[Rfam]
RNA sequence: AGAAGGAGAAGUUCAACUAAGACCGUCACAUCCUGUGACAACGUUGAACUUCCCUACGUCGUGUAGG
Numbered sequence: 001a002g003a004a005g006g007a008g009a010a011g012u013u014c015a016a017c018u019a020a021g022a023c024c025g026u027c028a029c030a031u032c033c034u035g036u037g038a039c040a041a042c043g044u045u046g047a048a049c050u051u052c053c054c055u056a057c058g059u060c061g062u063g064u065a066g067g
Base pairs, nucleotide, nucleotide: 011049012048013047014046015045016044017043025039026038027037028036029035053067054066055065056064057063
RNA: Bacillaceae-1 RNA
Organism: Pontibacillus yanchengensis